[Rfam]
RNA sequence: CCAGCCAGCCGGGCGGCCGCACCAGCAGGAGCCGAAAGGCUGCGGGUGAGGAAAGUCCGGGCUCCAUGGAAACACGGUGCCGGAUAAUGACCGGCGGGGGCGACCCCAGGGAAAGUGCCACAGAAAGCAAACCGCCAUGGCUUGCCAUGGCAAGGGUGAAAGGGUGGGGUAAGAGCCCACCGCGCGACUGGCAACAGGAGCGGCAGGGCAAACCCCACCGGGAGCAAGACCGAAUAGGGAUGGUGUGAAGGGAAACCUUCAGGGCUGUUUCCGGCCCCGCCAUCCGGGUAGGUUGCGUGAGGCGCAUGGCAACAUGCGUCCAAGACGAAUGGCCGCCACGUUUUCGUGCCCUCGGGCGCGAGGGCCAUACAGAACCCGGCUUAUAGGCUGGCUGGCAUU
Numbered sequence: 001c002c003a004g005c006c007a008g009c010c011g012g013g014c015g016g017c018c019g020c021a022c023c024a025g026c027a028g029g030a031g032c033c034g035a036a037a038g039g040c041u042g043c044g045g046g047u048g049a050g051g052a053a054a055g056u057c058c059g060g061g062c063u064c065c066a067u068g069g070a071a072a073c074a075c076g077g078u079g080c081c082g083g084a085u086a087a088u089g090a091c092c093g094g095c096g097g098g099g100g101c102g103a104c105c106c107c108a109g110g111g112a113a114a115g116u117g118c119c120a121c122a123g124a125a126a127g128c129a130a131a132c133c134g135c136c137a138u139g140g141c142u143u144g145c146c147a148u149g150g151c152a153a154g155g156g157u158g159a160a161a162g163g164g165u166g167g168g169g170u171a172a173g174a175g176c177c178c179a180c181c182g183c184g185c186g187a188c189u190g191g192c193a194a195c196a197g198g199a200g201c202g203g204c205a206g207g208g209c210a211a212a213c214c215c216c217a218c219c220g221g222g223a224g225c226a227a228g229a230c231c232g233a234a235u236a237g238g239g240a241u242g243g244u245g246u247g248a249a250g251g252g253a254a255a256c257c258u259u260c261a262g263g264g265c266u267g268u269u270u271c272c273g274g275c276c277c278c279g280c281c282a283u284c285c286g287g288g289u290a291g292g293u294u295g296c297g298u299g300a301g302g303c304g305c306a307u308g309g310c311a312a313c314a315u316g317c318g319u320c321c322a323a324g325a326c327g328a329a330u331g332g333c334c335g336c337c338a339c340g341u342u343u344u345c346g347u348g349c350c351c352u353c354g355g356g357c358g359c360g361a362g363g364g365c366c367a368u369a370c371a372g373a374a375c376c377c378g379g380c381u382u383a384u385a386g387g388c389u390g391g392c393u394g395g396c397a398u399u
Base pairs, nucleotide, nucleotide: 001395002394003393004392005391006390007389008388009387010386011384012337013336014335015334016333017332018331020048021047022046023045025043026042027041028040053382054381055380057379058378059377060376061375062224063223064222065221071270072269075220076219077218078217079216080094081093082092083091095109096107097106098105099104110215111214115213116212117209118208119207132155133154134151135150136149137148138147139146140145163181164180165179166178167177168176182204183202184201185200188197189196190195228294229293230292231291238285239284240283241282242281243280262277263276264275265274266273301320302319303318304317305316306315307314308313
Shown here is a 399-nucleotide RNA from Borborobacter arsenicus, a member of the family "Bacterial RNase P class A". Rfam links the family to the GO terms tRNA processing, dimeric ribonuclease P complex and ribonuclease P activity. Pairs were carried over by alignment from the consensus structure, which is taken from published work. Lineage of the source: Bacteria > Pseudomonadati > Alphaproteobacteria > Phyllobacteriaceae > Borborobacter.